A member of the RNA family "Bacterial RNase P class A" from Petrotoga mobilis, 331 nucleotides long. The family's consensus secondary structure is taken from published work. Rfam describes the family as follows. Ribonuclease P (RNase P) is a ubiquitous endoribonuclease, found in archaea, bacteria and eukarya as well as chloroplasts and mitochondria.
RNA sequence: GAAGUAGGACGGUUGAUCGCGAGUAGGCAUACUUGGGCCUAUUUUGAGGAAAGUCCGGACUCUAAGGGCAAGAUACUGGUUAACAACCAGAGGGAGUGAUCCCUGAAUAGGGCCAUAGAAAAGAAAACCGCCGAAAGGCAAGGGUGGAACGGUGAGGUAAGAGCUCACCAGUGUCAGAGCGAUCUGGCAGCUUGGUAACCUCUAUCUUGAGCAAGGUCAAACAAGAAGGCCAGAGGUUGCCCGCCGAGAGACUUUAGUGUCCGCCUUCUGGGUAGACCGCGUAGAUUAAUGGUUAACUUUACAGAAUCCGGCUUAUAGUCCUACUGAUAUA
Numbered sequence: 001g002a003a004g005u006a007g008g009a010c011g012g013u014u015g016a017u018c019g020c021g022a023g024u025a026g027g028c029a030u031a032c033u034u035g036g037g038c039c040u041a042u043u044u045u046g047a048g049g050a051a052a053g054u055c056c057g058g059a060c061u062c063u064a065a066g067g068g069c070a071a072g073a074u075a076c077u078g079g080u081u082a083a084c085a086a087c088c089a090g091a092g093g094g095a096g097u098g099a100u101c102c103c104u105g106a107a108u109a110g111g112g113c114c115a116u117a118g119a120a121a122a123g124a125a126a127a128c129c130g131c132c133g134a135a136a137g138g139c140a141a142g143g144g145u146g147g148a149a150c151g152g153u154g155a156g157g158u159a160a161g162a163g164c165u166c167a168c169c170a171g172u173g174u175c176a177g178a179g180c181g182a183u184c185u186g187g188c189a190g191c192u193u194g195g196u197a198a199c200c201u202c203u204a205u206c207u208u209g210a211g212c213a214a215g216g217u218c219a220a221a222c223a224a225g226a227a228g229g230c231c232a233g234a235g236g237u238u239g240c241c242c243g244c245c246g247a248g249a250g251a252c253u254u255u256a257g258u259g260u261c262c263g264c265c266u267u268c269u270g271g272g273u274a275g276a277c278c279g280c281g282u283a284g285a286u287u288a289a290u291g292g293u294u295a296a297c298u299u300u301a302c303a304g305a306a307u308c309c310g311g312c313u314u315a316u317a318g319u320c321c322u323a324c325u326g327a328u329a330u331a
Stems, first nucleotide, its partner, number of pairs: 003325008011316001012297007020046004024041005051314003055311005060211003067255002071207005076090005091104005105202002110200002112196003128143002130139003151169006171191001172189007215278004225268006248261002251258002